[Rfam]
RNA sequence: CCCGGCAUUCUCCUGCCGGUACCCUAGGUGGCAUGCGGUUUCCGAUGCAUCCGGUAACGGUGUGAAGCCCAACCGACAAAGUACCGAAUUCCGCGUCUGCGGAAGGGGUGGAAACCGUGAGGCGGAUACCCUCCUGGAAGCCUCAAUCCGGGUGAGGGC
Number, nucleotide and partner (000 for none) at each position: 001c000002c019003c018004g017005g016006c015007a014008u000009u000010c000011u000012c000013c000014u007015g006016c005017c004018g003019g002020u000021a000022c000023c000024c000025u000026a000027g073028g000029u071030g070031g069032c064033a063034u062035g061036c060037g000038g058039u057040u056041u000042c054043c053044g000045a000046u000047g000048c000049a000050u000051c000052c000053g043054g042055u000056a040057a039058c038059g000060g036061u035062g034063u033064g032065a000066a000067g000068c000069c031070c030071a029072a000073c027074c000075g000076a000077c000078a000079a000080a000081g000082u000083a000084c000085c000086g000087a000088a000089u104090u103091c102092c101093g100094c099095g000096u000097c000098u000099g094100c093101g092102g091103a090104a089105g131106g130107g129108g000109u000110g000111g000112a000113a000114a000115c122116c121117g000118u000119g000120a000121g116122g115123c000124g000125g000126a000127u000128a000129c107130c106131c105132u000133c152134c151135u150136g149137g148138a147139a000140g000141c000142c000143u000144c000145a000146a000147u138148c137149c136150g135151g134152g133153u000154g000155a000156g000157g000158g000159c000